[Rfam]
RNA sequence: GCCUGGUGGUUUCAAGCGACAGCUGAUCUGUGUGUCUUUGAUUGACAGGCACAAAUAAACUCAGAUUCUAUGCAUGGGAGCUGCCACUUCAAGUAGCCUCCAUAGCCUGGUUGCAGUGACAUCA
Numbered sequence: 001g002c003c004u005g006g007u008g009g010u011u012u013c014a015a016g017c018g019a020c021a022g023c024u025g026a027u028c029u030g031u032g033u034g035u036c037u038u039u040g041a042u043u044g045a046c047a048g049g050c051a052c053a054a055a056u057a058a059a060c061u062c063a064g065a066u067u068c069u070a071u072g073c074a075u076g077g078g079a080g081c082u083g084c085c086a087c088u089u090c091a092a093g094u095a096g097c098c099u100c101c102a103u104a105g106c107c108u109g110g111u112u113g114c115a116g117u118g119a120c121a122u123c124a
Stems, first nucleotide, its partner, number of pairs: 001050004007044002010041002014037001016035002019031004062116001064114001065112001067110002072106002074103004080097005
Rfam assigns this 124-nucleotide sequence from Salmo trutta to the family "Small nucleolar RNA SNORA84". Gene Ontology terms of the family: nucleolus and RNA processing. The organism belongs to Salmo, within Eukaryota. The match comes from Rfam's covariance-model search (45 bits).